[Rfam]
RNA: ncRNA Repressor of NFAT (nuclear factor of activated T cells)
RNA sequence: CACAGCUCUGCCUCGCAUCGCUCAAACAUCCCGUUACGUGCUGUACUAAUCCAUAUAAGAAAAUAUCUUUUAAUGAGGAGUGAUACAUUUACGAACUCUCUAGAGUCAUAAUUAGAGCAAACUAAUUGAAGUUGUGUUUUGACACACUUUCCAAAUUCACGGGUACUGCAUGACAUAUUCACAACACUGCUGCCGCACAGCCAUGGCGACAGCAAAAUCAUUAGGCUAAUAACGCUUAUUUGCAUUCUUAUCUUGCCAGCAGCACGCCGUUAAAUACUGCUCUAGCCAGUGCUCAUUUACUCUGAAAGUUUCCACUGAAAGUUAUUAACAGUAAUUAUUAGUGCUUUAGUGGGAUCUCUAACGCUAAGGA
Numbered sequence: 001c002a003c004a005g006c007u008c009u010g011c012c013u014c015g016c017a018u019c020g021c022u023c024a025a026a027c028a029u030c031c032c033g034u035u036a037c038g039u040g041c042u043g044u045a046c047u048a049a050u051c052c053a054u055a056u057a058a059g060a061a062a063a064u065a066u067c068u069u070u071u072a073a074u075g076a077g078g079a080g081u082g083a084u085a086c087a088u089u090u091a092c093g094a095a096c097u098c099u100c101u102a103g104a105g106u107c108a109u110a111a112u113u114a115g116a117g118c119a120a121a122c123u124a125a126u127u128g129a130a131g132u133u134g135u136g137u138u139u140u141g142a143c144a145c146a147c148u149u150u151c152c153a154a155a156u157u158c159a160c161g162g163g164u165a166c167u168g169c170a171u172g173a174c175a176u177a178u179u180c181a182c183a184a185c186a187c188u189g190c191u192g193c194c195g196c197a198c199a200g201c202c203a204u205g206g207c208g209a210c211a212g213c214a215a216a217a218u219c220a221u222u223a224g225g226c227u228a229a230u231a232a233c234g235c236u237u238a239u240u241u242g243c244a245u246u247c248u249u250a251u252c253u254u255g256c257c258a259g260c261a262g263c264a265c266g267c268c269g270u271u272a273a274a275u276a277c278u279g280c281u282c283u284a285g286c287c288a289g290u291g292c293u294c295a296u297u298u299a300c301u302c303u304g305a306a307a308g309u310u311u312c313c314a315c316u317g318a319a320a321g322u323u324a325u326u327a328a329c330a331g332u333a334a335u336u337a338u339u340a341g342u343g344c345u346u347u348a349g350u351g352g353g354a355u356c357u358c359u360a361a362c363g364c365u366a367a368g369g370a
Base pairs, nucleotide, nucleotide: 044363047360048359050353051352052351053350054349057346058345059344066079067078068077069076070075085338087336089334090333091332092331096105097104098103115294116293117292118291119290128150129149130148131147133146134145135144136143137142162268163267166262191208192207193206194205195204212256213255214254225243226242228240229239230238231237